The record is a 44-nucleotide RNA from Methanobrevibacter cuticularis, which matches "eL15-Euryarchaeota ribosomal protein leader" in Rfam. The source organism's lineage runs through Archaea, Methanobacteriota, Methanobacteriales, Methanobacteriaceae and Methanobrevibacter. Pairs were carried over by alignment from the consensus structure, which is taken from published work.
RNA sequence: UGGGAAAAAUCCCAUGGAUGUGGCCAUUUUGGCUGAACAAGAGG
Numbered sequence: 001u002g003g004g005a006a007a008a009a010u011c012c013c014a015u016g017g018a019u020g021u022g023g024c025c026a027u028u029u030u031g032g033c034u035g036a037a038c039a040a041g042a043g044g
Stems, first nucleotide, its partner, number of pairs: 001014005015039002022034004
By type it is a cis-regulatory leader.